THF (Tetrahydrofolate) riboswitch aptamer: a 97-nucleotide sequence from Butyrivibrio sp. Su6.
The source organism's lineage runs through Bacteria, Bacillati, Bacillota, Clostridia and Butyrivibrio.
A search with the family's covariance model found it, with a score of 86 bits.
Its family is annotated with tetrahydrofolate metabolic process in the Gene Ontology.
From the family's description: Tetrahydrofolate (THF) riboswitch was first reported for Ames et al. as an RNA motif in 5' untranslated (5'-UTR)regions of folate transport and biosynthesis genes in Firmicutes genomes.
[Rfam]
RNA sequence: UGCAGAGUAGAAAUUUAAGCGUUAAGUGCCGGGUGAACAGGGAGUUGUCAUCAGGACGAAGGAUUUUUCCGCGGUUUAAGUUUCGCAUCCCGCUGCU
Numbered sequence: 001u002g003c004a005g006a007g008u009a010g011a012a013a014u015u016u017a018a019g020c021g022u023u024a025a026g027u028g029c030c031g032g033g034u035g036a037a038c039a040g041g042g043a044g045u046u047g048u049c050a051u052c053a054g055g056a057c058g059a060a061g062g063a064u065u066u067u068u069c070c071g072c073g074g075u076u077u078a079a080g081u082u083u084c085g086c087a088u089c090c091c092g093c094u095g096c097u
Base pairs, nucleotide, nucleotide: 002096003095004094005093010084011083012082013081014080015079016078017077018076019075020073021072022071026057027056029055030054032052033051034050035049036048040090041089042088044086061070062069063068